[Rfam]
RNA: Purine riboswitch aptamer
Organism: Lysinibacillus telephonicus
RNA sequence: AUUAGCUGGUAAAAUAUCACUCAUAUAAUGGCGGGAAUAUGGCUCGCAAGUUUCUACCGACUUACCGUAAAUAAGUCGACUAUGAGAGAAAAAGUUUAGAUG
Numbered sequence: 001a002u003u004a005g006c007u008g009g010u011a012a013a014a015u016a017u018c019a020c021u022c023a024u025a026u027a028a029u030g031g032c033g034g035g036a037a038u039a040u041g042g043c044u045c046g047c048a049a050g051u052u053u054c055u056a057c058c059g060a061c062u063u064a065c066c067g068u069a070a071a072u073a074a075g076u077c078g079a080c081u082a083u084g085a086g087a088g089a090a091a092a093a094g095u096u097u098a099g100a101u102g
Base pairs, nucleotide, nucleotide: 018088020086021085022084023083024082025081029049031047032046033045034044035043058078059077060076061075062074063073064072